[Rfam]
RNA: TPP riboswitch aptamer (THI element)
RNA sequence: UCAAAGUGCUAGGGGAGCCAGAAAUGGCUGAGAGGGGAUUCGUUCCCGACCCUUAGAACCUGACCAGGGUAAUGCCUGCGAAGGGAAGCACGUUUUACGGAAU
Numbered sequence: 001u002c003a004a005a006g007u008g009c010u011a012g013g014g015g016a017g018c019c020a021g022a023a024a025u026g027g028c029u030g031a032g033a034g035g036g037g038a039u040u041c042g043u044u045c046c047c048g049a050c051c052c053u054u055a056g057a058a059c060c061u062g063a064c065c066a067g068g069g070u071a072a073u074g075c076c077u078g079c080g081a082a083g084g085g086a087a088g089c090a091c092g093u094u095u096u097a098c099g100g101a102a103u
Stems, first nucleotide, its partner, number of pairs: 006091005011053004017028004035046004059084003065078004